[Rfam]
RNA sequence: UGGAACAGAUGAUGAUAACCUUAACUUGAACUCUCUCUCUGAGCAAAGAUGAAAAAAUAAGGUCUGAGUUGUUCCA
Numbered sequence: 001u002g003g004a005a006c007a008g009a010u011g012a013u014g015a016u017a018a019c020c021u022u023a024a025c026u027u028g029a030a031c032u033c034u035c036u037c038u039c040u041g042a043g044c045a046a047a048g049a050u051g052a053a054a055a056a057a058u059a060a061g062g063u064c065u066g067a068g069u070u071g072u073u074c075c076a
Stems, first nucleotide, its partner, number of pairs: 001076007
RNA: Small nucleolar RNA SNORD81